[Rfam]
The family of this 104-nucleotide RNA from Carex littledalei is "Small nucleolar RNA Z266". A reference for the family is Chen et al. (2003), "The high diversity of snoRNAs in plants: identification and comparative study of 120 snoRNA genes from Oryza sativa", Nucleic Acids Res.
RNA sequence: UAUAUGGCAGCAAUGAUGAAUCAAUUAGAUGUGCUAAGCUAUAUUAUACAUAGCUUAUGAGCUUAAACUUGUGAGGCAUUUACACAAUUCUGAGCCUGCCAAUA
Numbered sequence: 001u002a003u004a005u006g007g008c009a010g011c012a013a014u015g016a017u018g019a020a021u022c023a024a025u026u027a028g029a030u031g032u033g034c035u036a037a038g039c040u041a042u043a044u045u046a047u048a049c050a051u052a053g054c055u056u057a058u059g060a061g062c063u064u065a066a067a068c069u070u071g072u073g074a075g076g077c078a079u080u081u082a083c084a085c086a087a088u089u090c091u092g093a094g095c096c097u098g099c100c101a102a103u104a
Stems, first nucleotide, its partner, number of pairs: 001104003005101006011094001
Dot-bracket structure: (((.(((((((..................................................................................).)))))))))

It scores 59 bits against the family's covariance model.
Taxonomically the source falls in Carex subgen. Euthyceras (Eukaryota, Magnoliopsida, Cariceae, Carex).
Rfam links the family to the GO terms nucleolus and RNA processing.
By type it is a C/D-box small nucleolar RNA.
The base pairs follow the family's consensus structure, which was predicted with PFOLD.